[Rfam]
RNA sequence: UGGUUAAAUCCACACUCAGCGAUUUAAUUCGUUUCGUACGCAUAAAAUUAUAUCGUUAUUUUAUUUUAACCUAAAAAGAAAAUCGUCACCCCUUCGUUGCUCUUCUGCCGAAACGUUUGUCCCUCGGCCUUCUUCUUUCCCUUCUUUGUAGUUUUGAAUUUUUUAAGGCUAUUGAGGGGGGAUUGUUGAAAGUCGGGUUGGAUUAGCGCGUAGGUGGGGGAACAACGGGGGGAGUGUUUUGAUUUUCCCCUUCAUAUUCCCGGCAUUUUCAACGCCCUCUCGGGGCACCUUCUUGUUAAGUGAUGUUGAUUUUGCCGUAACAAAACGGAGGGGCACACAAAAAAGGAGAGGAAAAAAAAAAAGGGUGUGCUGGUAGG
Numbered sequence: 001u002g003g004u005u006a007a008a009u010c011c012a013c014a015c016u017c018a019g020c021g022a023u024u025u026a027a028u029u030c031g032u033u034u035c036g037u038a039c040g041c042a043u044a045a046a047a048u049u050a051u052a053u054c055g056u057u058a059u060u061u062u063a064u065u066u067u068a069a070c071c072u073a074a075a076a077a078g079a080a081a082a083u084c085g086u087c088a089c090c091c092c093u094u095c096g097u098u099g100c101u102c103u104u105c106u107g108c109c110g111a112a113a114c115g116u117u118u119g120u121c122c123c124u125c126g127g128c129c130u131u132c133u134u135c136u137u138u139c140c141c142u143u144c145u146u147u148g149u150a151g152u153u154u155u156g157a158a159u160u161u162u163u164u165a166a167g168g169c170u171a172u173u174g175a176g177g178g179g180g181g182a183u184u185g186u187u188g189a190a191a192g193u194c195g196g197g198u199u200g201g202a203u204u205a206g207c208g209c210g211u212a213g214g215u216g217g218g219g220g221a222a223c224a225a226c227g228g229g230g231g232g233a234g235u236g237u238u239u240u241g242a243u244u245u246u247c248c249c250c251u252u253c254a255u256a257u258u259c260c261c262g263g264c265a266u267u268u269u270c271a272a273c274g275c276c277c278u279c280u281c282g283g284g285g286c287a288c289c290u291u292c293u294u295g296u297u298a299a300g301u302g303a304u305g306u307u308g309a310u311u312u313u314g315c316c317g318u319a320a321c322a323a324a325a326c327g328g329a330g331g332g333g334c335a336c337a338c339a340a341a342a343a344a345g346g347a348g349a350g351g352a353a354a355a356a357a358a359a360a361a362a363g364g365g366u367g368u369g370c371u372g373g374u375a376g377g
Stems, first nucleotide, its partner, number of pairs: 002071007018057006026049003089348001091346002095236004100231004237343004247333007262316004269309005274286004290302001292300002317326002
RNA: Plasmodium RNA of unkown function RUF1